The family of this 123-nucleotide sequence is "drum RNA". About the family: Firmicutes, Bacteroidetes (1 example), Proteobacteria (2 examples), Spirochaetes (2 examples). The family's RNA type in Rfam is small RNA.
RNA sequence: GAGCUGCGAUUCAGUAGGCGUGCCAAGAUUGCGCCGGGCUGAUGAGCUUUGUGUAAGGGUUGUGCGUGUUACCUCAACUUGGCGUUAGACCAUGAAAUAGUUGGUUGACAGAAAACGUACAUA
Numbered sequence: 001g002a003g004c005u006g007c008g009a010u011u012c013a014g015u016a017g018g019c020g021u022g023c024c025a026a027g028a029u030u031g032c033g034c035c036g037g038g039c040u041g042a043u044g045a046g047c048u049u050u051g052u053g054u055a056a057g058g059g060u061u062g063u064g065c066g067u068g069u070u071a072c073c074u075c076a077a078c079u080u081g082g083c084g085u086u087a088g089a090c091c092a093u094g095a096a097a098u099a100g101u102u103g104g105u106u107g108a109c110a111g112a113a114a115a116c117g118u119a120c121a122u123a
Base pairs, nucleotide, nucleotide: 001049002048003047004046011042012041013040014039015038017035018034019033020032021031023082024081025080026079064118065117066116088106089105090104091103